[Rfam]
RNA sequence: UCGUCCGAGGAGCGUUGCAACCGUCCCCCCGCCAUCCAGGCGAGCGGCGGCCAGGCUCGGAUCCUUCUUCAAGGCAACGGCGCUCACCCGCA
Numbered sequence: 001u002c003g004u005c006c007g008a009g010g011a012g013c014g015u016u017g018c019a020a021c022c023g024u025c026c027c028c029c030c031g032c033c034a035u036c037c038a039g040g041c042g043a044g045c046g047g048c049g050g051c052c053a054g055g056c057u058c059g060g061a062u063c064c065u066u067c068u069u070c071a072a073g074g075c076a077a078c079g080g081c082g083c084u085c086a087c088c089c090g091c092a
Stems, first nucleotide, its partner, number of pairs: 003062006021050005
SAH (S-adenosyl-L-homocysteine) riboswitch aptamer: a 92-nucleotide RNA from Aquariibacter albus. It scores 61 bits against the family's covariance model. For this family Rfam cites "Riboswitches that sense S-adenosylhomocysteine and activate genes involved in coenzyme recycling" (Wang et al., Mol Cell, 2008). Its family is annotated with regulation of gene expression and S-adenosylhomocysteine metabolic process in the Gene Ontology. Lineage of the source: Bacteria > Pseudomonadati > Pseudomonadota > Burkholderiales > Aquariibacter.